[Rfam]
Nucleotides: 120
Stems, first nucleotide, its partner, number of pairs: 001120001003118006013042005021031003025080004043072004048068002050065004076112001081109006
Number, partner (000 for none) and nucleotide at each position: 001120c002000a003118c004117u005116c006115a007114u008113c009000c010000a011000g012000a013042g014041a015040g016039g017038u018000g019000g020000a021031g022030g023029g024000a025080u026079c027078g028077g029023c030022c031021c032000u033000g034000u035000g036000a037000a038017a039016c040015c041014u042013c043072g044071g045070c046069a047000a048068c049067c050065a051064c052063a053062a054000u055000c056000g057000u058000g059000c060000g061000a062053u063052u064051g065050u066000a067049g068048g069046u070045g071044c072043c073000a074000a075000u076112u077028c078027c079026g080025g081109c082108a083107g084106a085105a086104g087000c088000a089000g090000c091000c092000c093000a094000a095000c096000g097000a098000g099000g100000c101000g102000g103000a104086c105085u106084u107083c108082u109081g110000g111000g112076a113008g114007a115006u116005g117004a118003g119000g120001g